[Rfam]
RNA sequence: CUCUUAUCAAGAGAGGUUGAGGGAUAGGCCCGAUGACACCUCAGCAACCAUCAAUGGAUUCUUUCAUUGAAAAGGUGCUAAUUCCUACAAGCUGAUUGCUCAUGCUUGAAAGAUGAGAA
Numbered sequence: 001c002u003c004u005u006a007u008c009a010a011g012a013g014a015g016g017u018u019g020a021g022g023g024a025u026a027g028g029c030c031c032g033a034u035g036a037c038a039c040c041u042c043a044g045c046a047a048c049c050a051u052c053a054a055u056g057g058a059u060u061c062u063u064u065c066a067u068u069g070a071a072a073a074g075g076u077g078c079u080a081a082u083u084c085c086u087a088c089a090a091g092c093u094g095a096u097u098g099c100u101c102a103u104g105c106u107u108g109a110a111a112g113a114u115g116a117g118a119a
Stems, first nucleotide, its partner, number of pairs: 002118007013042005021031003025087004043079004048075002051070006083111001088108005
Annotation:
SAM riboswitch aptamer (S box leader): a 119-nucleotide RNA sequence from Cytobacillus horneckiae. The SAM riboswitch is found upstream of a number of genes which code for proteins involved in methionine or cysteine biosynthesis in Gram-positive bacteria. Taxonomically the source falls in Cytobacillus (Bacteria, Bacillati, Caryophanales, Bacillaceae). A search with the family's covariance model found it, with a score of 91 bits.